[Rfam]
RNA: Fungal signal recognition particle RNA
RNA sequence: UGGCUGUAAUGGUCAUUCUAUUGGAAAAUUGAGGGUUCUCCCUUCGCCAAGACCGUUUGCCGGGUUUAACUCGGCAGUGCCUACGGUGUCGAGUUCGAACUCUCUGGUGCGCGGUUUCCCGUCGGAGCGAGCAAUCCUCCAGUAUGGGCGUGUGUAAAGUUGGAGGGUAUUUGUGAGGGUGGAAACACCGCAGCAGGCCUCUUCACCAGAGAGUGGCGUCAACACGAUAGCACCUGUGGGCAUUUGGGUACUGGUGGAUGGGAGGUUUGGACUCGAAUCACCAUCUUAUUUUUUAGUUUU
Numbered sequence: 001u002g003g004c005u006g007u008a009a010u011g012g013u014c015a016u017u018c019u020a021u022u023g024g025a026a027a028a029u030u031g032a033g034g035g036u037u038c039u040c041c042c043u044u045c046g047c048c049a050a051g052a053c054c055g056u057u058u059g060c061c062g063g064g065u066u067u068a069a070c071u072c073g074g075c076a077g078u079g080c081c082u083a084c085g086g087u088g089u090c091g092a093g094u095u096c097g098a099a100c101u102c103u104c105u106g107g108u109g110c111g112c113g114g115u116u117u118c119c120c121g122u123c124g125g126a127g128c129g130a131g132c133a134a135u136c137c138u139c140c141a142g143u144a145u146g147g148g149c150g151u152g153u154g155u156a157a158a159g160u161u162g163g164a165g166g167g168u169a170u171u172u173g174u175g176a177g178g179g180u181g182g183a184a185a186c187a188c189c190g191c192a193g194c195a196g197g198c199c200u201c202u203u204c205a206c207c208a209g210a211g212a213g214u215g216g217c218g219u220c221a222a223c224a225c226g227a228u229a230g231c232a233c234c235u236g237u238g239g240g241c242a243u244u245u246g247g248g249u250a251c252u253g254g255u256g257g258a259u260g261g262g263a264g265g266u267u268u269g270g271a272c273u274c275g276a277a278u279c280a281c282c283a284u285c286u287u288a289u290u291u292u293u294u295a296g297u298u299u300u
Base pairs, nucleotide, nucleotide: 001015002014003013004012020297021296022295023294024293025292026291031285032284040262041261043258044257045256046255047254048253049252052249053248054247059075060074061073062072063071064070065069076244077243078242080239081238085234086233087232088231089230090226091225093223094222096218097217099214100213101212102211103210104209105208106207107206114151115150117148118147119146121143122142124140125139126138127137129136130135154160155159161205162204163203164202165201166200167199171196172195173194174193179188180187181186